[Rfam]
RNA sequence: UAACCGGUAAUGCCGAAUCUCGGGCCCCGGAUCAGUCGGGGCGCGAGAGCGGGGGAACCACGAUUUGGGGCUAACCCGCCCGAUCCCACCACCGGUGAGCAAGGGCGGGGGCGCAGGCUCUUUCAGCGCCAGCCCGUCAGCUAACCCCGUAGGCCGACGAAGGAGACGGU
Numbered sequence: 001u002a003a004c005c006g007g008u009a010a011u012g013c014c015g016a017a018u019c020u021c022g023g024g025c026c027c028c029g030g031a032u033c034a035g036u037c038g039g040g041g042c043g044c045g046a047g048a049g050c051g052g053g054g055g056a057a058c059c060a061c062g063a064u065u066u067g068g069g070g071c072u073a074a075c076c077c078g079c080c081c082g083a084u085c086c087c088a089c090c091a092c093c094g095g096u097g098a099g100c101a102a103g104g105g106c107g108g109g110g111g112c113g114c115a116g117g118c119u120c121u122u123u124c125a126g127c128g129c130c131a132g133c134c135c136g137u138c139a140g141c142u143a144a145c146c147c148c149g150u151a152g153g154c155c156g157a158c159g160a161a162g163g164a165g166a167c168g169g170u
Stems, first nucleotide, its partner, number of pairs: 012154003018048005049150006059067002068135003076108006111129004
This 170-nucleotide RNA from a Solirubrobacterales bacterium belongs to the Rfam family "c-di-AMP riboswitch aptamer (ydaO/yuaA leader)". This family represents a conserved RNA structure found upstream of the ydaO and yuaA genes in Bacillus subtilis and related genes in other bacteria.